[Rfam]
The record is a 131-nucleotide RNA sequence from Oryctolagus cuniculus, which matches "Small nucleolar RNA SNORA61" in Rfam.
Rfam describes the family as follows. ACA61 is a member of the H/ACA class of snoRNA that guide the sites of modification of uridines to pseudouridines.
Rfam classes the family as an H/ACA-box small nucleolar RNA.
RNA sequence: ACCCUCUGGUUCCCUUUUCCAUCUGACUGGAACAUGGGUCUUGAUGGUAGUACAAGAAACAAAAAUGAUGCUGAAGCUGGCUUCACAGUGUUGUAGUCUGAUAUACAGCAUAGGGCCAACCUCAAACAAGG
Numbered sequence: 001a002c003c004c005u006c007u008g009g010u011u012c013c014c015u016u017u018u019c020c021a022u023c024u025g026a027c028u029g030g031a032a033c034a035u036g037g038g039u040c041u042u043g044a045u046g047g048u049a050g051u052a053c054a055a056g057a058a059a060c061a062a063a064a065a066u067g068a069u070g071c072u073g074a075a076g077c078u079g080g081c082u083u084c085a086c087a088g089u090g091u092u093g094u095a096g097u098c099u100g101a102u103a104u105a106c107a108g109c110a111u112a113g114g115g116c117c118a119a120c121c122u123c124a125a126a127c128a129a130g131g
Base pairs, nucleotide, nucleotide: 005058007056019047020046021045022044023043025040026039027038028037078118079117080116081115082114083113092110093109094108
Gene Ontology terms of the family: RNA processing and nucleolus.